[Rfam]
This 77-nucleotide RNA from Prevotella sp. tc2-28 belongs to the Rfam family "L13-Bacteroidia ribosomal protein leader".
The literature on the family includes a 2020 paper in BMC Microbiol by Eckert and Weinberg, "Discovery of 20 novel ribosomal leader candidates in bacteria and archaea".
Pairs were carried over by alignment from the consensus structure, which is taken from published work.
By type it is a cis-regulatory leader.
Lineage of the source: Bacteria > Bacteroidia > Bacteroidales > Prevotellaceae > Prevotella.
RNA sequence: GGGGGAGAGACUUAGAAUCCUCCGUGGGCCGUGUGUAAAUAGUAGUGUCUUUGGCCGGGCAUUGCGGUUUGUGAAUC
Number, nucleotide and partner (000 for none) at each position: 001g023002g022003g021004g020005g019006a018007g000008a000009g000010a000011c000012u000013u000014a000015g000016a000017a000018u006019c005020c004021u003022c002023c001024g000025u000026g000027g000028g000029c000030c000031g000032u000033g000034u000035g000036u071037a070038a069039a068040u067041a000042g065043u064044a063045g062046u061047g060048u059049c058050u057051u000052u000053g000054g000055c000056c000057g050058g049059g048060c047061a046062u045063u044064g043065c042066g000067g040068u039069u038070u037071g036072u000073g000074a000075a000076u000077c000